[Rfam]
RNA sequence: GAGGCCACCUCAAACAGAGACACUGAUGGUCUUUGGUUUCCUAAGUGCUUCUCUUUGGGGUUGUCUCA
Numbered sequence: 001g002a003g004g005c006c007a008c009c010u011c012a013a014a015c016a017g018a019g020a021c022a023c024u025g026a027u028g029g030u031c032u033u034u035g036g037u038u039u040c041c042u043a044a045g046u047g048c049u050u051c052u053c054u055u056u057g058g059g060g061u062u063g064u065c066u067c068a
Stems, first nucleotide, its partner, number of pairs: 004064002007061005014055001016052004021047004026042001028041001